The record is a 177-nucleotide RNA sequence from Oncorhynchus mykiss, which matches "U2 spliceosomal RNA" in Rfam. The family's consensus secondary structure is taken from published work. Lineage of the source: Eukaryota > Metazoa > Actinopterygii > Euteleosteomorpha > Oncorhynchus. U2 is a small nuclear RNA (snRNA) component of the spliceosome (involved in pre-mRNA splicing). Complementary binding between U2 snRNA (in an area lying towards the 5' end but 3' to hairpin I) and the branchpoint sequence (BPS) of the intron results the bulging out of an unpaired adenosine, on the BPS, which initiates a nucleophilic attack at the intronic 5' splice site, thus starting the first of two transesterification reactions that mediate splicing. Rfam 15.1 lists 71,512 matches to the family in 2,642 species.

RNA sequence: AAAAAUUAGAAAAAAUAAAAAAAAUCUGUUCUUAUCAGUUUAAUAUCUGAUAUGUCCCCUAUCUGGGGACCAUAUAUUAAAUUGAUUUUUGGAACAGGGAGAUGGAAUAGGGGCUCACUCCGUCCACUCCACGCACCGACCUGGUAUUGCAGUACCUCCAGGAACGGUCCACCCCGU
Numbered sequence: 001a002a003a004a005a006u007u008a009g010a011a012a013a014a015a016u017a018a019a020a021a022a023a024a025u026c027u028g029u030u031c032u033u034a035u036c037a038g039u040u041u042a043a044u045a046u047c048u049g050a051u052a053u054g055u056c057c058c059c060u061a062u063c064u065g066g067g068g069a070c071c072a073u074a075u076a077u078u079a080a081a082u083u084g085a086u087u088u089u090u091g092g093a094a095c096a097g098g099g100a101g102a103u104g105g106a107a108u109a110g111g112g113g114c115u116c117a118c119u120c121c122g123u124c125c126a127c128u129c130c131a132c133g134c135a136c137c138g139a140c141c142u143g144g145u146a147u148u149g150c151a152g153u154a155c156c157u158c159c160a161g162g163a164a165c166g167g168u169c170c171a172c173c174c175c176g177u
Stems, first nucleotide, its partner, number of pairs: 033052006054070006098130004104124002110121004133170001135168004140162005